[Rfam]
RNA sequence: UGGAGAUGAUGACUGAUUAUCUGAAAUGGCUGAUGAAACAUUGCCGAAAUCCUCUAGAUAGUCAAGUGCUGAUCCAG
Numbered sequence: 001u002g003g004a005g006a007u008g009a010u011g012a013c014u015g016a017u018u019a020u021c022u023g024a025a026a027u028g029g030c031u032g033a034u035g036a037a038a039c040a041u042u043g044c045c046g047a048a049a050u051c052c053u054c055u056a057g058a059u060a061g062u063c064a065a066g067u068g069c070u071g072a073u074c075c076a077g
Stems, first nucleotide, its partner, number of pairs: 001076004
The family of this 77-nucleotide RNA sequence from Bucco capensis is "Small nucleolar RNA SNORD20". For this family Rfam cites "U20, a novel small nucleolar RNA, is encoded in an intron of the nucleolin gene in mammals" (Nicoloso et al., Mol Cell Biol, 1994). U20 is a C/D box small nucleolar RNA that is encoded in intron 11 of the nucleolin gene in human, mouse and rat. The family has 13 seed sequences and 573 matches in Rfam 15.1. NCBI's taxonomy places the organism under Eukaryota, Craniata, Dipnotetrapodomorpha, Theropoda, Bucco.